[Rfam]
RNA sequence: UGGAAGUGAUGAAAUAGAGAUAAUUGGAUGUCAUUUUGAAUGGAGUGUGUGUGUGAUAAAUGGAAUUUAAACCAAGUCAGACUGGGGGUGGGUUGUGGGGAGUGUGUGUGUGUGUGCACAUGUACAGAAAAGGCUUUAAAUGGGGGCGCUGAUAUUGCAGUGCUGAUUCCGGAGUGCAUCUGAGGCAUGUUGUUAAGCUCUGGGGUGCUACUUUACAACAUUGCCAAUGAUUAAAGCCCAAAACAAGCCCACCAAUACAAGCCUGUGCAUCCUAACUCUCUAACAGGUUCAUUUAAUGAAAGUGAUCCUGUGAUCUGAUCUGA
Numbered sequence: 001u002g003g004a005a006g007u008g009a010u011g012a013a014a015u016a017g018a019g020a021u022a023a024u025u026g027g028a029u030g031u032c033a034u035u036u037u038g039a040a041u042g043g044a045g046u047g048u049g050u051g052u053g054u055g056a057u058a059a060a061u062g063g064a065a066u067u068u069a070a071a072c073c074a075a076g077u078c079a080g081a082c083u084g085g086g087g088g089u090g091g092g093u094u095g096u097g098g099g100g101a102g103u104g105u106g107u108g109u110g111u112g113u114g115u116g117c118a119c120a121u122g123u124a125c126a127g128a129a130a131a132g133g134c135u136u137u138a139a140a141u142g143g144g145g146g147c148g149c150u151g152a153u154a155u156u157g158c159a160g161u162g163c164u165g166a167u168u169c170c171g172g173a174g175u176g177c178a179u180c181u182g183a184g185g186c187a188u189g190u191u192g193u194u195a196a197g198c199u200c201u202g203g204g205g206u207g208c209u210a211c212u213u214u215a216c217a218a219c220a221u222u223g224c225c226a227a228u229g230a231u232u233a234a235a236g237c238c239c240a241a242a243a244c245a246a247g248c249c250c251a252c253c254a255a256u257a258c259a260a261g262c263c264u265g266u267g268c269a270u271c272c273u274a275a276c277u278c279u280c281u282a283a284c285a286g287g288u289u290c291a292u293u294u295a296a297u298g299a300a301a302g303u304g305a306u307c308c309u310g311u312g313a314u315c316u317g318a319u320c321u322g323a
Stems, first nucleotide, its partner, number of pairs: 001322004188220006195213001196209003200205001
A member of the RNA family "Small Cajal body-specific RNA 7" from Corythaeola cristata, 323 nucleotides long. The family has 18 seed sequences and 570 matches in Rfam 15.1. The match comes from Rfam's covariance-model search (178 bits). By type it is a small Cajal body RNA. Rfam links the family to the GO terms nucleolus and RNA processing.